[Rfam]
RNA sequence: AUCCAGUGAGGAGGAUCUCCCAUUAAUUGAUAGGAAGUGCCGUAUGACACUCUAAACAGCAGUUCCGUU
Numbered sequence: 001a002u003c004c005a006g007u008g009a010g011g012a013g014g015a016u017c018u019c020c021c022a023u024u025a026a027u028u029g030a031u032a033g034g035a036a037g038u039g040c041c042g043u044a045u046g047a048c049a050c051u052c053u054a055a056a057c058a059g060c061a062g063u064u065c066c067g068u069u
Stems, first nucleotide, its partner, number of pairs: 014063001034053001036051004

About this RNA
Shown here is a 69-nucleotide RNA from Trifolium pratense, a member of the family "Small nucleolar RNA U49". Rfam links the family to the GO terms RNA processing and nucleolus. By type it is a C/D-box small nucleolar RNA. The family's consensus secondary structure was predicted with CMfinder. Clan: SNORD49 clan. A search with the family's covariance model found it, with a score of 49 bits. On this family, see Brown et al., RNA 2001: "Multiple snoRNA gene clusters from Arabidopsis".